[Rfam]
RNA sequence: ACGAAAAAUCACGGGGUGCUGAGAGAAUCGGCUGAGAUGAUACCCAUUGAACCUGAUGCAGAUAAUGCUGACGCAGGGAGAUAUGAUAUUACCGAA
Number, nucleotide and partner (000 for none) at each position: 001a000002c000003g000004a000005a000006a084007a000008a082009u081010c080011a000012c000013g045014g044015g043016g000017u040018g032019c031020u030021g029022a028023g000024a000025g000026a000027a000028u022029c021030g020031g019032c018033u000034g000035a000036g000037a000038u000039g000040a017041u000042a000043c015044c014045c013046a000047u000048u000049g000050a000051a000052c077053c076054u075055g074056a000057u000058g000059c070060a069061g068062a000063u000064a000065a000066u000067g000068c061069u060070g059071a000072c000073g000074c055075a054076g053077g052078g000079a000080g010081a009082u008083a000084u006085g000086a000087u000088a000089u000090u000091a000092c000093c000094g000095a000096a000
This 96-nucleotide RNA from Prevotella sp. CAG:732 belongs to the Rfam family "TPP riboswitch aptamer (THI element)".
It scores 63 bits against the family's covariance model.
The family's consensus secondary structure is taken from published work.
Taxonomically the source falls in Prevotella (Bacteria, Bacteroidota, Bacteroidia, Bacteroidales).